[Rfam]
RNA sequence: GCUGGUGCUUUAUAAUAGAUACAGGGAAACCUGGGCGGUAAUUGUGCAGUUGCAAAGCAUAUUUACCGUUUACAUA
Numbered sequence: 001g002c003u004g005g006u007g008c009u010u011u012a013u014a015a016u017a018g019a020u021a022c023a024g025g026g027a028a029a030c031c032u033g034g035g036c037g038g039u040a041a042u043u044g045u046g047c048a049g050u051u052g053c054a055a056a057g058c059a060u061a062u063u064u065a066c067c068g069u070u071u072a073c074a075u076a
Base pairs, nucleotide, nucleotide: 022033023032024031025030034070035069036068037067038066039065040064041063043061044060045059046058047057
Dot-bracket structure: .....................((((....))))((((((((.(((((.........))))).))))))))......